Annotation: The family of this 48-nucleotide sequence from Pardalotus punctatus is "Guanidine-II riboswitch aptamer (mini-ykkC)". The base pairs follow the family's consensus structure, which is taken from published work.

RNA sequence: GCUUGGGGACGGCCCCAUCCCCUGUCCCAUGGGUUGGGGACGGCCCCA
Numbered sequence: 001g002c003u004u005g006g007g008g009a010c011g012g013c014c015c016c017a018u019c020c021c022c023u024g025u026c027c028c029a030u031g032g033g034u035u036g037g038g039g040a041c042g043g044c045c046c047c048a
Stems, first nucleotide, its partner, number of pairs: 001020001004017005035048005